Description:
Glm Y RNA activator of glmS mRNA: a 165-nucleotide RNA from Yersinia mollaretii. Taxonomically the source falls in Yersinia mollaretii (Bacteria, Pseudomonadota, Gammaproteobacteria, Yersiniaceae). On this family, see Rivas et al., Curr Biol 2001: "Computational identification of noncoding RNAs in E. coli by comparative genomics". Rfam classes the family as a small RNA. Rfam describes the family as follows. This family consists of a number of bacterial RNA genes of around 167 bases in length. The tke1 RNA gene is present in Escherichia coli, Shigella flexneri, Yersinia pestis and Salmonella species where it is found between the yfhK and purL genes. The function of this RNA is unknown.
RNA sequence: AGAUGCUCAUUCACCUUUUUAUGAUAGUCCCGCUGUUAAGCGGAAUAUGCGCUUCAUAAGCCAUCGAAUGAUGCCUAAGACUGGUACCUAUCGUCCACCUAAACCGAUAUCGUGUGAAUACACAUUAUCAAACAUCGGGCGACACGUUGAGUGAGGUACCGCCUA
Numbered sequence: 001a002g003a004u005g006c007u008c009a010u011u012c013a014c015c016u017u018u019u020u021a022u023g024a025u026a027g028u029c030c031c032g033c034u035g036u037u038a039a040g041c042g043g044a045a046u047a048u049g050c051g052c053u054u055c056a057u058a059a060g061c062c063a064u065c066g067a068a069u070g071a072u073g074c075c076u077a078a079g080a081c082u083g084g085u086a087c088c089u090a091u092c093g094u095c096c097a098c099c100u101a102a103a104c105c106g107a108u109a110u111c112g113u114g115u116g117a118a119u120a121c122a123c124a125u126u127a128u129c130a131a132a133c134a135u136c137g138g139g140c141g142a143c144a145c146g147u148u149g150a151g152u153g154a155g156g157u158a159c160c161g162c163c164u165a
Stems, first nucleotide, its partner, number of pairs: 005074002007071006019059006026053003083160007092141005106129004143153003